This 65-nucleotide RNA sequence from Candidatus Sulfobium mesophilum belongs to the Rfam family "Fluoride riboswitch aptamer (crcB RNA motif)". Pairs were carried over by alignment from the consensus structure, which is taken from published work. NCBI's taxonomy places the organism under Bacteria, Pseudomonadati, Nitrospirota, Nitrospiraceae, Candidatus Sulfobium. The match comes from Rfam's covariance-model search (40 bits).
RNA sequence: GGCAGAAAUGGUGAUGGAGUUCGCCGCUAAACGAACCUCCAUGGACUGAUAACUCCUACCCUUAC
Numbered sequence: 001g002g003c004a005g006a007a008a009u010g011g012u013g014a015u016g017g018a019g020u021u022c023g024c025c026g027c028u029a030a031a032c033g034a035a036c037c038u039c040c041a042u043g044g045a046c047u048g049a050u051a052a053c054u055c056c057u058a059c060c061c062u063u064a065c
Stems, first nucleotide, its partner, number of pairs: 010025004016056006033046001